[Rfam]
RNA: BsrG
RNA sequence: CAAUAACAUAUGGAUUCUCAAGGGUGGACGGCAUUCCCCGUAAGAAAGGGGGUGUCGCGAUGAGCGUCUUUCAGUCUUUGGUAUUAAUGAUUGCCUUUGCUGGAUUAGUCGUCUCCAUUAUUACAUUGGCACAACGCCAAAAAUAAUCCCACCCUUGAGCCGGACAAGCCAGUGGGUGGGAAACACCUUACUCUUGCCGUCCUCCCUUGUAGAGGAGUCCGGUUAUUGCAAGCCGCAGGUGUAUGACCAUCUGCG
Number, nucleotide and partner (000 for none) at each position: 001c228002a227003a226004u225005a224006a000007c222008a000009u000010a000011u000012g000013g201014a200015u199016u000017c159018u158019c157020a156021a155022g154023g153024g152025u000026g149027g148028a147029c000030g000031g055032c054033a053034u000035u052036c051037c050038c049039c048040g000041u000042a000043a000044g000045a000046a000047a000048g039049g038050g037051g036052g035053u033054g032055u031056c000057g000058c000059g000060a000061u000062g114063a000064g112065c111066g110067u000068c108069u000070u000071u000072c000073a000074g000075u090076c089077u000078u000079u000080g000081g000082u000083a000084u000085u000086a000087a000088u000089g076090a075091u000092u000093g000094c000095c000096u000097u000098u000099g000100c000101u000102g000103g000104a000105u000106u000107a000108g068109u000110c066111g065112u064113c000114u062115c000116c000117a000118u000119u000120a000121u000122u000123a000124c000125a000126u000127u000128g000129g000130c000131a000132c000133a000134a000135c000136g000137c000138c000139a000140a000141a000142a000143a000144u000145a000146a000147u028148c027149c026150c000151a000152c024153c023154c022155u021156u020157g019158a018159g017160c000161c000162g000163g000164a000165c000166a000167a000168g000169c000170c000171a000172g000173u000174g000175g000176g000177u000178g000179g000180g000181a000182a000183a000184c000185a000186c000187c000188u000189u000190a000191c000192u000193c000194u000195u000196g000197c000198c000199g015200u014201c013202c217203u216204c215205c214206c000207u000208u000209g000210u000211a000212g000213a000214g205215g204216a203217g202218u000219c000220c000221g000222g007223u000224u005225a004226u003227u002228g001229c000230a000231a000232g000233c000234c255235g254236c253237a252238g251239g250240u249241g248242u000243a000244u000245g000246a000247c000248c241249a240250u239251c238252u237253g236254c235255g234